[Rfam]
RNA sequence: AACUCCUGUUUCUGCCUCAGAUUCGUGCUUUCAUAUGGAAGCAAUGGGAUUAUGGGUUCUGGUGAUGGAGGAAAUCAAGCCAUCGAACAGACAAUUGCUACCUUUGAUACAACCAGCUUUUGUUUUUUGUUUUAUGGAUCGUGUGGUCGACUUGUAUCCGUAGUUGGUUUGUUGUGUGAUUACAAUAUUCAAUGAACUGAUCGUCCCACUAUAUUU
Numbered sequence: 001a002a003c004u005c006c007u008g009u010u011u012c013u014g015c016c017u018c019a020g021a022u023u024c025g026u027g028c029u030u031u032c033a034u035a036u037g038g039a040a041g042c043a044a045u046g047g048g049a050u051u052a053u054g055g056g057u058u059c060u061g062g063u064g065a066u067g068g069a070g071g072a073a074a075u076c077a078a079g080c081c082a083u084c085g086a087a088c089a090g091a092c093a094a095u096u097g098c099u100a101c102c103u104u105u106g107a108u109a110c111a112a113c114c115a116g117c118u119u120u121u122g123u124u125u126u127u128u129g130u131u132u133u134a135u136g137g138a139u140c141g142u143g144u145g146g147u148c149g150a151c152u153u154g155u156a157u158c159c160g161u162a163g164u165u166g167g168u169u170u171g172u173u174g175u176g177u178g179a180u181u182a183c184a185a186u187a188u189u190c191a192a193u194g195a196a197c198u199g200a201u202c203g204u205c206c207c208a209c210u211a212u213a214u215u216u
Stems, first nucleotide, its partner, number of pairs: 003070004016056004020051005080137004085132005090125002092122003097117003143209004148203003152199001163193004169187001171186005
RNA: Small nucleolar RNA snR43